A member of the RNA family "Small nucleolar RNA snoR145" from Thalictrum thalictroides, 156 nucleotides long. It scores 79 bits against the family's covariance model. By type it is an H/ACA-box small nucleolar RNA. NCBI's taxonomy places the organism under Eukaryota, Embryophyta, Tracheophyta, Thalictroideae, Thalictrum.
RNA sequence: AUGUGAAGGUCCCAGCAGAGAGAUAGGAACUCUAUUUUGAGAUCUCUCUAACAUGAAUAAUUACCCUUCGCAGAUUGAGAUCAUUAUCAGCUGUUUCGUGGGAUUCCCAAUUAGAUUACAAUUUUUGGUGUAUCUUGAACCCUCAGCUACAUUUAU
Dot-bracket structure: ..(((((((.(.(....).).....((..(((......)))....)).................)))))))..................((((........((..(((((..............)))).)..)).........)))).........